[Rfam]
RNA sequence: CCCGUCGAGGAGCGUUGCGACAGCCGCGGCCCAUGCCGCCGGUUGCCAGGCUCGACAGGGCGGCGUCGUCGCGUGCGGCGCGCCUCAACGGCGCUCACCCCGG
Numbered sequence: 001c002c003c004g005u006c007g008a009g010g011a012g013c014g015u016u017g018c019g020a021c022a023g024c025c026g027c028g029g030c031c032c033a034u035g036c037c038g039c040c041g042g043u044u045g046c047c048a049g050g051c052u053c054g055a056c057a058g059g060g061c062g063g064c065g066u067c068g069u070c071g072c073g074u075g076c077g078g079c080g081c082g083c084c085u086c087a088a089c090g091g092c093g094c095u096c097a098c099c100c101c102g103g
Stems, first nucleotide, its partner, number of pairs: 002058001004056005021045006
Overview: The family of this 103-nucleotide RNA from Ideonella livida is "SAH (S-adenosyl-L-homocysteine) riboswitch aptamer". The match comes from Rfam's covariance-model search (48 bits). The base pairs follow the family's consensus structure, which is taken from published work. The source organism's lineage runs through Bacteria, Pseudomonadati, Burkholderiales, Sphaerotilaceae and Ideonella.